[Rfam]
RNA: Bacterial small signal recognition particle RNA
Organism: Ventosimonas gracilis
Nucleotides: 097
Base pairs, nucleotide, nucleotide: 004091005090006089007088008087010083011082012081013080014079015075017074018073019072020071021070024066025065026064027063028062034059035058036057037056042051043050044049
Number, partner (000 for none) and nucleotide at each position: 001000u002000a003000u004091u005090u006089g007088u008087c009000c010083c011082c012081u013080c014079g015075c016000a017074a018073a019072a020071a021070u022000c023000a024066g025065c026064c027063g028062u029000g030000a031000a032000c033000c034059c035058g036057g037056u038000c039000a040000g041000g042051c043050c044049c045000g046000g047000a048000a049044g050043g051042g052000a053000g054000c055000a056037g057036c058035c059034g060000c061000a062028g063027c064026g065025g066024u067000g068000a069000c070021a071020u072019u073018u074017u075015g076000u077000g078000c079014c080013g081012a082011g083010g084000u085000c086000a087008g088007g089006c090005g091004g092000g093000u094000a095000a096000a097000g